[Rfam]
RNA sequence: CUCUUAUCCAGAGAGGUGGAGGGACUGGCCCGAUGAAGCCCGGCAACCGGUAUUUUGUUAAAAAUACAGCGGUGCCAAUUCCUGCAAUGGAAACAUUGAGAGAUGAGAG
Numbered sequence: 001c002u003c004u005u006a007u008c009c010a011g012a013g014a015g016g017u018g019g020a021g022g023g024a025c026u027g028g029c030c031c032g033a034u035g036a037a038g039c040c041c042g043g044c045a046a047c048c049g050g051u052a053u054u055u056u057g058u059u060a061a062a063a064a065u066a067c068a069g070c071g072g073u074g075c076c077a078a079u080u081c082c083u084g085c086a087a088u089g090g091a092a093a094c095a096u097u098g099a100g101a102g103a104u105g106a107g108a109g
Stems, first nucleotide, its partner, number of pairs: 001109008013041001015040003021031003025084001027082002042076004047072002050067005080101001085098005

A member of the RNA family "SAM riboswitch aptamer (S box leader)" from Pelotomaculum schinkii, 109 nucleotides long. It scores 91 bits against the family's covariance model. About the family: The SAM riboswitch is found upstream of a number of genes which code for proteins involved in methionine or cysteine biosynthesis in Gram-positive bacteria.